[Rfam]
The record is a 76-nucleotide RNA from Orycteropus afer, which matches "mir-202 microRNA precursor family" in Rfam. A reference for the family is Bentwich et al. (2005), "Identification of hundreds of conserved and nonconserved human microRNAs", Nat Genet. It scores 79 bits against the family's covariance model.

RNA sequence: UCACCCCUUCCUCCUAUGCAUAUACUUCUUUGAGGGUCUGGCCUAAAGAGGUAUAGGGCAUGGGACAAAGGGGCGG
Numbered sequence: 001u002c003a004c005c006c007c008u009u010c011c012u013c014c015u016a017u018g019c020a021u022a023u024a025c026u027u028c029u030u031u032g033a034g035g036g037u038c039u040g041g042c043c044u045a046a047a048g049a050g051g052u053a054u055a056g057g058g059c060a061u062g063g064g065a066c067a068a069a070g071g072g073g074c075g076g
Base pairs, nucleotide, nucleotide: 012065013064014063015062016061017060018059019058021055022054023053025051026050027049028048029047030046031045032044